[Rfam]
RNA sequence: GCUGGCAUAAUGAUGAUUACUGCUCUUUGCCGUUUACCCAGCUGAAUUCUGUGAUGAGCAAGGUUGUACCUGAUGUGCCAGC
Dot-bracket structure: (((((((....................................................................)))))))
This 82-nucleotide RNA from Egretta garzetta belongs to the Rfam family "Small nucleolar RNA SNORD87". The base pairs follow the family's consensus structure. It scores 52 bits against the family's covariance model. It is annotated as a C/D-box small nucleolar RNA. Taxonomically the source falls in Egretta (Eukaryota, Opisthokonta, Tetrapoda, Aequornithes).